[Rfam]
RNA: Group II catalytic intron D1-D4-6
Organism: Mycobacterium pseudokansasii
RNA sequence: GGAGCUCUACGCCGAAGGGCUAGCGACCCGCGGCGGCCCCGCGUCAUGCGUCGACGACCCGCGAGGGCGUGGCGAAGCGUUGACAGGGGGUACGUGCAGGCCGGGCUAUUGAGCCGCGAAAUGAUGCGAUCGGGGUGCCCACGUUGUACAAGAGGCGGAAGGCAACAUCGCUGGCGGCGCUUUCGCGAGCCGUUGGUGGACCCCGCGUGGUCAAAGAUCC
Dot-bracket structure: .........(((((..(((.[.[[..))).))))).((((..(((((((((((.((.(((....))))))))))...)).)))).))))....................((.((((((............(((((((((..((((........))))...)))....(((((((((((......]].])))))))))))))))))))))))).)......